RNA sequence: UAGUGUUACAGCUGUUUUAGAAUUUAUCUAGCAGGUUUUGUGGUCUUUACUGGAAAGCCCAA
Number, nucleotide and partner (000 for none) at each position: 001u000002a000003g000004u000005g000006u000007u000008a000009c000010a000011g000012c000013u000014g000015u000016u000017u000018u000019a000020g000021a000022a000023u000024u000025u000026a000027u000028c000029u000030a000031g000032c000033a000034g059035g058036u057037u056038u055039u054040g000041u052042g051043g050044u049045c000046u000047u000048u000049a044050c043051u042052g041053g000054a039055a038056a037057g036058c035059c034060c000061a000062a000
Annotation:
Rfam assigns this 62-nucleotide sequence from Mandrillus leucophaeus to the family "U7 small nuclear RNA". The match comes from Rfam's covariance-model search (63 bits). Taxonomically the source falls in Mandrillus (Eukaryota, Vertebrata, Primates, Haplorrhini).